[Rfam]
RNA sequence: UUACAUAAGCAGCCGAAUUUCCAAGUGAAAACGGGGGAACCAUAAUGCUGCCGUUACCGGUAGCAAGGGGUGAAUUUCAAUCAUCAAGCCGUACUGGCCGGAUGUUUGAAUAGGGCGACCUGUUCGUGCCCGAAUCCGUCAGCUAACCUCGUAGGCUGCCAGAACAGGACUC
Numbered sequence: 001u002u003a004c005a006u007a008a009g010c011a012g013c014c015g016a017a018u019u020u021c022c023a024a025g026u027g028a029a030a031a032c033g034g035g036g037g038a039a040c041c042a043u044a045a046u047g048c049u050g051c052c053g054u055u056a057c058c059g060g061u062a063g064c065a066a067g068g069g070g071u072g073a074a075u076u077u078c079a080a081u082c083a084u085c086a087a088g089c090c091g092u093a094c095u096g097g098c099c100g101g102a103u104g105u106u107u108g109a110a111u112a113g114g115g116c117g118a119c120c121u122g123u124u125c126g127u128g129c130c131c132g133a134a135u136c137c138g139u140c141a142g143c144u145a146a147c148c149u150c151g152u153a154g155g156c157u158g159c160c161a162g163a164a165c166a167g168g169a170c171u172c
Base pairs, nucleotide, nucleotide: 011157012156013155014154018030019029020028031152032151033150034149035148036147041067068137069136070135076110077109078108079107113131114130115129116128
Notes
This 172-nucleotide RNA from Paenibacillus abyssi belongs to the Rfam family "c-di-AMP riboswitch aptamer (ydaO/yuaA leader)". Lineage of the source: Bacteria > Bacillota > Bacilli > Caryophanales > Paenibacillus. Gene Ontology terms of the family: regulation of gene expression and cyclic-di-AMP binding.